Rfam assigns this 269-nucleotide RNA sequence from Alishewanella jeotgali to the family "PAGEV RNA". Rfam's curators put it in the seed alignment.
[Rfam]
RNA sequence: UAUUUACAGUUUGGAAUCAAGAUGUCUUGGGCUGUAAAUGGUCAGGCCGCUUACAAGGGGAGAUCCAAGGCGGCACCCGCGAGGGUGGUUUCAGGUAUGAAAUCGACAGGUACUAAAUCAGUGAACAGAGGGGCAAACAACGCUAUCACGGUAAAAAAAAGCGGCAGUUACCAGUAACGAGGAAAUAUUAAGAGAUCACGGACAAAAGGGGGGAUUGGCAGCCGCUGCUUGGGUUGUAAGUUUUGUCCAGUCGAAUGUGUUCAGCAACA
Numbered sequence: 001u002a003u004u005u006a007c008a009g010u011u012u013g014g015a016a017u018c019a020a021g022a023u024g025u026c027u028u029g030g031g032c033u034g035u036a037a038a039u040g041g042u043c044a045g046g047c048c049g050c051u052u053a054c055a056a057g058g059g060g061a062g063a064u065c066c067a068a069g070g071c072g073g074c075a076c077c078c079g080c081g082a083g084g085g086u087g088g089u090u091u092c093a094g095g096u097a098u099g100a101a102a103u104c105g106a107c108a109g110g111u112a113c114u115a116a117a118u119c120a121g122u123g124a125a126c127a128g129a130g131g132g133g134c135a136a137a138c139a140a141c142g143c144u145a146u147c148a149c150g151g152u153a154a155a156a157a158a159a160a161g162c163g164g165c166a167g168u169u170a171c172c173a174g175u176a177a178c179g180a181g182g183a184a185a186u187a188u189u190a191a192g193a194g195a196u197c198a199c200g201g202a203c204a205a206a207a208g209g210g211g212g213g214a215u216u217g218g219c220a221g222c223c224g225c226u227g228c229u230u231g232g233g234u235u236g237u238a239a240g241u242u243u244u245g246u247c248c249a250g251u252c253g254a255a256u257g258u259g260u261u262c263a264g265c266a267a268c269a
Stems, first nucleotide, its partner, number of pairs: 001040011046074006062216005085199008200262005221251002224248001
Lineage of the source: Bacteria > Pseudomonadati > Alteromonadales > Alishewanella > Alishewanella jeotgali.